The record is a 94-nucleotide RNA sequence from Marvinbryantia formatexigens, which matches "Glycine riboswitch aptamer" in Rfam. The source organism's lineage runs through Bacteria, Bacillati, Bacillota, Marvinbryantia and Marvinbryantia formatexigens.
RNA sequence: GGACUGCACUCUGGAGAACCCCACAAAGAGGUGGGUGCCGAAGGUGCAAAGCACACUGUGCUAAUCUCUCAGGCGAAAGGACAGAGAAUGCAAU
Numbered sequence: 001g002g003a004c005u006g007c008a009c010u011c012u013g014g015a016g017a018a019c020c021c022c023a024c025a026a027a028g029a030g031g032u033g034g035g036u037g038c039c040g041a042a043g044g045u046g047c048a049a050a051g052c053a054c055a056c057u058g059u060g061c062u063a064a065u066c067u068c069u070c071a072g073g074c075g076a077a078a079g080g081a082c083a084g085a086g087a088a089u090g091c092a093a094u
Base pairs, nucleotide, nucleotide: 006089009086010085011084012083013082020035021034022033023032037074038073039072040070041069044068046066051061052060